[Rfam]
RNA sequence: CUGAUGGCGGCGUCUGGGUGGAAAUCGGAAUCAAUCGCCCUAUUCCCCUUCGCACCGGAGAAAAGUACUCGGUGGGGCAGCGCCUAAGUGUCAG
Dot-bracket structure: (((((...(((((..(((....(.(.(....).))..)))...(.(((....((((((..........))))))))).)))))).....)))))
L4-Archaeoglobi ribosomal protein leades: a 94-nucleotide RNA. By type it is a cis-regulatory leader. It is one of the family's seed sequences. On this family, see Eckert and Weinberg, BMC Microbiol 2020: "Discovery of 20 novel ribosomal leader candidates in bacteria and archaea".